[Rfam]
RNA sequence: UAACAUUACGCGGCAACGUCUUAGGACAAAACGGUUGUUCAAACAACUUGGUUAAGCCGGAGUAGGACGUGUGGAAUUGCCGCAGUUCUAAGUCUGCUCAGGUUUUGCUAA
Numbered sequence: 001u002a003a004c005a006u007u008a009c010g011c012g013g014c015a016a017c018g019u020c021u022u023a024g025g026a027c028a029a030a031a032c033g034g035u036u037g038u039u040c041a042a043a044c045a046a047c048u049u050g051g052u053u054a055a056g057c058c059g060g061a062g063u064a065g066g067a068c069g070u071g072u073g074g075a076a077u078u079g080c081c082g083c084a085g086u087u088c089u090a091a092g093u094c095u096g097c098u099c100a101g102g103u104u105u106u107g108c109u110a111a
Base pairs, nucleotide, nucleotide: 010083011082012081013080014079018027019026020025035046036045037044038043048111049110050109051108052107057102058101060099061098062097063096064095065094066093072090073089074088075087076086
This 111-nucleotide RNA sequence from Shewanella baltica belongs to the Rfam family "RT-12 RNA". It is one of the family's seed sequences. NCBI's taxonomy places the organism under Bacteria, Pseudomonadati, Pseudomonadota, Alteromonadales, Shewanella baltica. It is annotated as a small RNA.